[Rfam]
RNA: Small nucleolar RNA SNORA11
RNA sequence: GGGGUGUGCUCAGAGCAGGGGGCCUGAAGAAUGCUUCUUCUGUUUACAACACACCCAAUAGGAAUCUGGGGUCAUUGUGACGGGGGGCACAAAACUUGUGACCUCUCUAUGAACAAAUGCCCCACAUGU
Numbered sequence: 001g002g003g004g005u006g007u008g009c010u011c012a013g014a015g016c017a018g019g020g021g022g023c024c025u026g027a028a029g030a031a032u033g034c035u036u037c038u039u040c041u042g043u044u045u046a047c048a049a050c051a052c053a054c055c056c057a058a059u060a061g062g063a064a065u066c067u068g069g070g071g072u073c074a075u076u077g078u079g080a081c082g083g084g085g086g087g088c089a090c091a092a093a094a095c096u097u098g099u100g101a102c103c104u105c106u107c108u109a110u111g112a113a114c115a116a117a118u119g120c121c122c123c124a125c126a127u128g129u
Stems, first nucleotide, its partner, number of pairs: 002056007013045009022035001024033001069122004076115003081111002084104003088100005